[Rfam]
RNA sequence: UAAAAGGGCCGACUGGCAACAUGCCACAUGAGGUGUAGCAGUGCACCUAAUGCCGUAUGGAUAUCAAGACAUAUGGGCGGCAAAAUUUGUGGAAUUCGGAGGGCUAUCAGCAAACUGCUGGCCCCAC
Numbered sequence: 001u002a003a004a005a006g007g008g009c010c011g012a013c014u015g016g017c018a019a020c021a022u023g024c025c026a027c028a029u030g031a032g033g034u035g036u037a038g039c040a041g042u043g044c045a046c047c048u049a050a051u052g053c054c055g056u057a058u059g060g061a062u063a064u065c066a067a068g069a070c071a072u073a074u075g076g077g078c079g080g081c082a083a084a085a086u087u088u089g090u091g092g093a094a095u096u097c098g099g100a101g102g103g104c105u106a107u108c109a110g111c112a113a114a115c116u117g118c119u120g121g122c123c124c125c126a127c
Stems, first nucleotide, its partner, number of pairs: 008081004014026005027052003031048007053076007101124005109119004